[Rfam]
RNA sequence: GGGGGCGUAUUAGGCUUUGACGUCUACCACGGAACCUAAAGUGCAUAUCGAGCAUGAACAUAACUCGUUAAAUACUGUUUAAAACAAAUAGUUGCAAAUAAUUACAACUAUAGUUUGGCAGCUUAAUGCCAACCUGUUAUCAUUUGUGACCUACAACAUUUGAUAACGGUCAUUUUAGUAGGAUAUACUCUACCAGCGCCCACUUGUAGAGUGAAUUUAAGGGCUUAGCUUAAUGUGUCUUGAUCAUCAGGCUACAUUAAAGUGAAUUAAAUUGAUGAAUCUAAGUAUGUAGAUACUAAGGGAAAGUGAUGACGGACGUGGGUUCAAAUCCCGCCGCCUCCACCA
Number, nucleotide and partner (000 for none) at each position: 001g341002g340003g339004g338005g337006c336007g335008u000009a000010u000011u000012a000013g000014g000015c000016u000017u000018u000019g000020a000021c314022g313023u312024c311025u000026a000027c308028c000029a000030c000031g000032g000033a000034a000035c301036c300037u299038a000039a000040a297041g296042u295043g294044c289045a288046u287047a286048u285049c067050g066051a065052g064053c000054a000055u081056g080057a079058a078059c077060a076061u000062a000063a000064c052065u051066c050067g049068u000069u000070a000071a000072a000073u000074a000075c000076u060077g059078u058079u057080u056081a055082a000083a000084a000085c000086a000087a000088a000089u000090a000091g000092u000093u000094g000095c000096a000097a000098a000099u000100a000101a000102u000103u000104a000105c000106a000107a000108c000109u000110a000111u000112a000113g000114u000115u132116u131117g130118g129119c128120a127121g000122c000123u000124u000125a000126a000127u120128g119129c118130c117131a116132a115133c000134c169135u168136g167137u166138u165139a164140u000141c162142a000143u000144u000145u158146g157147u000148g000149a000150c182151c181152u180153a179154c178155a000156a000157c146158a145159u000160u000161u000162g141163a000164u139165a138166a137167c136168g135169g134170u000171c000172a000173u000174u000175u000176u000177a000178g154179u153180a152181g151182g150183a000184u000185a000186u213187a212188c211189u210190c209191u208192a207193c206194c000195a000196g000197c000198g224199c223200c222201c221202a000203c000204u000205u000206g193207u192208a191209g190210a189211g188212u187213g186214a000215a000216u000217u000218u000219a000220a000221g201222g200223g199224c198225u000226u000227a000228g263229c262230u261231u260232a000233a258234u000235g000236u000237g000238u251239c250240u249241u000242g281243a280244u279245c000246a276247u275248c274249a240250g239251g238252c000253u000254a000255c000256a000257u000258u233259a000260a231261a230262g229263u228264g000265a000266a000267u000268u000269a000270a000271a000272u000273u000274g248275a247276u246277g000278a000279a244280u243281c242282u000283a000284a000285g048286u047287a046288u045289g044290u000291a000292g000293a000294u043295a042296c041297u040298a000299a037300g036301g035302g000303a000304a000305a000306g000307u000308g027309a000310u000311g024312a023313c022314g021315g000316a000317c000318g334319u333320g332321g331322g330323u000324u000325c000326a000327a000328a000329u000330c322331c321332c320333g319334c318335c007336g006337c005338c004339u003340c002341c001342a000343c000344c000345a000
This 345-nucleotide sequence belongs to the Rfam family "transfer-messenger RNA".